Shown here is a 174-nucleotide RNA sequence from Suhomyces tanzawaensis, a member of the family "Small nucleolar RNA snR32". Rfam links the family to the GO terms nucleolus and RNA processing. A reference for the family is Balakin et al. (1993), "SnR31, snR32, and snR33: three novel, non-essential snRNAs from Saccharomyces cerevisiae", Nucleic Acids Res.
RNA sequence: AACAUCAAUCGCAUGUUCACUCUCUACAAAAGGCUGGCUUCACUUUUCAGUUGUGAGGUUGGUUGGAGUUCAAAUGUGAAUGAAAGCGUAGAAAAACCACUUGUUGGAGCACGUUUCUGGGCGCCCGAUGUUGACAAAGCCGUGGAACAUUGGGAAUCAGUUGUGACUAAAUCU
Numbered sequence: 001a002a003c004a005u006c007a008a009u010c011g012c013a014u015g016u017u018c019a020c021u022c023u024c025u026a027c028a029a030a031a032g033g034c035u036g037g038c039u040u041c042a043c044u045u046u047u048c049a050g051u052u053g054u055g056a057g058g059u060u061g062g063u064u065g066g067a068g069u070u071c072a073a074a075u076g077u078g079a080a081u082g083a084a085a086g087c088g089u090a091g092a093a094a095a096a097c098c099a100c101u102u103g104u105u106g107g108a109g110c111a112c113g114u115u116u117c118u119g120g121g122c123g124c125c126c127g128a129u130g131u132u133g134a135c136a137a138a139g140c141c142g143u144g145g146a147a148c149a150u151u152g153g154g155a156a157u158c159a160g161u162u163g164u165g166a167c168u169a170a171a172u173c174u
Base pairs, nucleotide, nucleotide: 010088011087012086015081016080017079018078019077020076023073029046030045031044032043035042036041047066048065049064050063051062052061053060109167111164112163113162124154125153128150129149130148131147132146135145137143